[Rfam]
RNA sequence: CUAUAAUCCCGCAAUAGGGAUUGAGGCGGCAUCCUUUUUUACGUGGUAAAAAGCUACAGGUAUCGAUGUUGUUAAACUCAAAAAAGAUACAGCCGAAAGCCCGACGCAUC
Numbered sequence: 001c002u003a004u005a006a007u008c009c010c011g012c013a014a015u016a017g018g019g020a021u022u023g024a025g026g027c028g029g030c031a032u033c034c035u036u037u038u039u040u041a042c043g044u045g046g047u048a049a050a051a052a053g054c055u056a057c058a059g060g061u062a063u064c065g066a067u068g069u070u071g072u073u074a075a076a077c078u079c080a081a082a083a084a085a086g087a088u089a090c091a092g093c094c095g096a097a098a099g100c101c102c103g104a105c106g107c108a109u110c
Base pairs, nucleotide, nucleotide: 017102018101019100021098022097026093027092031088032087033086037083038082039081040080043077044076

Flavo-1 RNA: a 110-nucleotide RNA sequence from Cochleicola gelatinilyticus. Pairs were carried over by alignment from the consensus structure, which is taken from published work. The match comes from Rfam's covariance-model search (44 bits). Taxonomically the source falls in Cochleicola (Bacteria, Bacteroidota, Flavobacteriales, Flavobacteriaceae). The family has 201 seed sequences and 7,497 matches in Rfam 15.1.